[Rfam]
RNA sequence: UGAGUGAGUGACCCUGUCGCUCGAGGCUUAGGUCUCGGGAGGAAAGUCCGGGCCACAUAGAGCAUCACGCUUCCUAACGGGAAGGCGUCGUGAGGCGCUCGAUGCGUAACAGAGAAUGACCGCCUGCUCGCAGGUAAGGGUGAAAAGGUGAGGCAAGAGCUCACCGAGCCGUCGGUGACGAGGGCUGCCGUACGCAGACGUGAGGGGAAAAAUCAUGUAUACCGGCGACUGAGGGCUGCUCGUCCGAUGCCGGGGGGUAGAUCGAUAGAGGUGUCGGGCAACCGCCACCCAAGAUUAAUGACAGGGACGCUUGGUGAGAGCACCAAGACGACAGAACCCGGCUUACCACUCACUCCUGAG
Numbered sequence: 001u002g003a004g005u006g007a008g009u010g011a012c013c014c015u016g017u018c019g020c021u022c023g024a025g026g027c028u029u030a031g032g033u034c035u036c037g038g039g040a041g042g043a044a045a046g047u048c049c050g051g052g053c054c055a056c057a058u059a060g061a062g063c064a065u066c067a068c069g070c071u072u073c074c075u076a077a078c079g080g081g082a083a084g085g086c087g088u089c090g091u092g093a094g095g096c097g098c099u100c101g102a103u104g105c106g107u108a109a110c111a112g113a114g115a116a117u118g119a120c121c122g123c124c125u126g127c128u129c130g131c132a133g134g135u136a137a138g139g140g141u142g143a144a145a146a147g148g149u150g151a152g153g154c155a156a157g158a159g160c161u162c163a164c165c166g167a168g169c170c171g172u173c174g175g176u177g178a179c180g181a182g183g184g185c186u187g188c189c190g191u192a193c194g195c196a197g198a199c200g201u202g203a204g205g206g207g208a209a210a211a212a213u214c215a216u217g218u219a220u221a222c223c224g225g226c227g228a229c230u231g232a233g234g235g236c237u238g239c240u241c242g243u244c245c246g247a248u249g250c251c252g253g254g255g256g257g258u259a260g261a262u263c264g265a266u267a268g269a270g271g272u273g274u275c276g277g278g279c280a281a282c283c284g285c286c287a288c289c290c291a292a293g294a295u296u297a298a299u300g301a302c303a304g305g306g307a308c309g310c311u312u313g314g315u316g317a318g319a320g321c322a323c324c325a326a327g328a329c330g331a332c333a334g335a336a337c338c339c340g341g342c343u344u345a346c347c348a349c350u351c352a353c354u355c356c357u358g359a360g
Stems, first nucleotide, its partner, number of pairs: 002355009012306007020039008044344003048341005053207002056204001060241004065203005070084005085098005099198002104195005120139002122135005147165006166188001167186004172181003212262003222253005233245004270289004275284003
Record summary: Shown here is a 360-nucleotide sequence from Porphyromonas sp. HMSC065F10, a member of the family "Bacterial RNase P class A". A search with the family's covariance model found it, with a score of 228 bits. Taxonomically the source falls in Porphyromonas (Bacteria, Bacteroidota, Bacteroidia, Bacteroidales). Ribonuclease P (RNase P) is a ubiquitous endoribonuclease, found in archaea, bacteria and eukarya as well as chloroplasts and mitochondria. Its best characterised activity is the generation of mature 5'-ends of tRNAs by cleaving the 5'-leader elements of precursor-tRNAs. Cellular RNase Ps are ribonucleoproteins.